[Rfam]
RNA: c-di-GMP-I-GGC riboswitch aptamer
RNA sequence: GAUGAAAAUAGCAAACCCGUCAAAAGGCGGGGACGCAAAGCCACGGGUCUAAAGUUAUCUAUGACAGCCGGGUUGCCAUGC
Numbered sequence: 001g002a003u004g005a006a007a008a009u010a011g012c013a014a015a016c017c018c019g020u021c022a023a024a025a026g027g028c029g030g031g032g033a034c035g036c037a038a039a040g041c042c043a044c045g046g047g048u049c050u051a052a053a054g055u056u057a058u059c060u061a062u063g064a065c066a067g068c069c070g071g072g073u074u075g076c077c078a079u080g081c
Stems, first nucleotide, its partner, number of pairs: 001081001003078002011036002016031006034067001039074004044070003047065003